[Rfam]
RNA sequence: AGCUAUGAUGAGUAAAAGAAACAUUGCUGACUUGGUAUUGGUACCUUCGGGUGUCUCUGACCAGGGUCUGAUUGCUUUUAAUCUUCUCUCUGAGCUG
Numbered sequence: 001a002g003c004u005a006u007g008a009u010g011a012g013u014a015a016a017a018g019a020a021a022c023a024u025u026g027c028u029g030a031c032u033u034g035g036u037a038u039u040g041g042u043a044c045c046u047u048c049g050g051g052u053g054u055c056u057c058u059g060a061c062c063a064g065g066g067u068c069u070g071a072u073u074g075c076u077u078u079u080a081a082u083c084u085u086c087u088c089u090c091u092g093a094g095c096u097g
Base pairs, nucleotide, nucleotide: 002095003094040055041054042053043052
This 97-nucleotide RNA from Pangasianodon hypophthalmus belongs to the Rfam family "Z30 small nucleolar RNA".
It is annotated as a C/D-box small nucleolar RNA.
A search with the family's covariance model found it, with a score of 63 bits.
The organism belongs to Pangasianodon, within Eukaryota.
Its family is annotated with RNA processing and nucleolus in the Gene Ontology.
The base pairs follow the family's consensus structure, which was predicted with PFOLD.
On this family, see Galardi et al., Mol Cell Biol 2002: "Purified box C/D snoRNPs are able to reproduce site-specific 2'-O-methylation of target RNA in vitro".